Notes:
The family of this 204-nucleotide RNA sequence from Gymnodraco acuticeps is "Small nucleolar RNA SNORA73 family". It scores 170 bits against the family's covariance model. About the family: U17 (SNORA73A and SNORA73B) also known as E1 belongs to the H/ACA class of small nucleolar RNAs (snoRNAs). The organism belongs to Gymnodraco, within Eukaryota. Pairs were carried over by alignment from the consensus structure, which is taken from published work.
RNA sequence: CCGACAUGGAUAUCCAGCGAGGUUGCUCUCCUGGCUCUGUCCUUGUGGCGUAUGGGAGCGUAGCGUUCAGCUGAGACGUAAAGUCCCGUUCCACGAUGUCGGAGAUUAAGCUCUUCUCCAGAGAUGGGCGUCCUGUAUAUUCCUACAUCUUCCCAGAGUCCUUUGGGGCCAUUACUGGGGGGCUAAACCAUGCAGUGCACAUUG
Numbered sequence: 001c002c003g004a005c006a007u008g009g010a011u012a013u014c015c016a017g018c019g020a021g022g023u024u025g026c027u028c029u030c031c032u033g034g035c036u037c038u039g040u041c042c043u044u045g046u047g048g049c050g051u052a053u054g055g056g057a058g059c060g061u062a063g064c065g066u067u068c069a070g071c072u073g074a075g076a077c078g079u080a081a082a083g084u085c086c087c088g089u090u091c092c093a094c095g096a097u098g099u100c101g102g103a104g105a106u107u108a109a110g111c112u113c114u115u116c117u118c119c120a121g122a123g124a125u126g127g128g129c130g131u132c133c134u135g136u137a138u139a140u141u142c143c144u145a146c147a148u149c150u151u152c153c154c155a156g157a158g159u160c161c162u163u164u165g166g167g168g169c170c171a172u173u174a175c176u177g178g179g180g181g182g183c184u185a186a187a188c189c190a191u192g193c194a195g196u197g198c199a200c201a202u203u204g
Stems, first nucleotide, its partner, number of pairs: 001102007008042005014034003019028003045094004054087004060079002064073001133195006149182006158169004
On this family, see Enright et al., RNA 1996: "5'ETS rRNA processing facilitated by four small RNAs: U14, E3, U17, and U3".
Clan: snR30-U17 clan.
It is annotated as an H/ACA-box small nucleolar RNA.
Gene Ontology terms of the family: nucleolus and RNA processing.